RNA sequence: UGGGCAGACUGAAAAAGGUGAAUCGUGACAAGCUAGUUGGUGACGAUUCACCUUCUUCAGUCUGCCCU
Numbered sequence: 001u002g003g004g005c006a007g008a009c010u011g012a013a014a015a016a017g018g019u020g021a022a023u024c025g026u027g028a029c030a031a032g033c034u035a036g037u038u039g040g041u042g043a044c045g046a047u048u049c050a051c052c053u054u055c056u057u058c059a060g061u062c063u064g065c066c067c068u
Base pairs, nucleotide, nucleotide: 002067003066004065005064006063007062008061009060010059011058012057013056015054016053017052018051019050020049021048022047023046024045025044026043028041029040
mir-9447 microRNA precursor family: a 68-nucleotide sequence from Nematostella vectensis. Pairs were carried over by alignment from the consensus structure, which was predicted with RNAalifold. Rfam links the family to the GO terms miRNA-mediated post-transcriptional gene silencing and RISC complex.